[Rfam]
RNA sequence: AUGUGUUGGGAUGAAGAGUUUCAUGGUUCUUGAAAAUCAUGGCACUUGGAGUGAGCUGCAUUUGUGUUCACUCCACACUCAACUCGUCUGCUCCGCGAAUUUGCAGAAGAGGGCUUAACCUUUUGGCUAAUUCAGGGCAAACCGGCAAGUCACACAACGGCAAUGGACUCUGCUGAGUCUU
Numbered sequence: 001a002u003g004u005g006u007u008g009g010g011a012u013g014a015a016g017a018g019u020u021u022c023a024u025g026g027u028u029c030u031u032g033a034a035a036a037u038c039a040u041g042g043c044a045c046u047u048g049g050a051g052u053g054a055g056c057u058g059c060a061u062u063u064g065u066g067u068u069c070a071c072u073c074c075a076c077a078c079u080c081a082a083c084u085c086g087u088c089u090g091c092u093c094c095g096c097g098a099a100u101u102u103g104c105a106g107a108a109g110a111g112g113g114c115u116u117a118a119c120c121u122u123u124u125g126g127c128u129a130a131u132u133c134a135g136g137g138c139a140a141a142c143c144g145g146c147a148a149g150u151c152a153c154a155c156a157a158c159g160g161c162a163a164u165g166g167a168c169u170c171u172g173c174u175g176a177g178u179c180u181u
Base pairs, nucleotide, nucleotide: 048074049073050072084140086138087137098132099131100130166179167178168177169176170175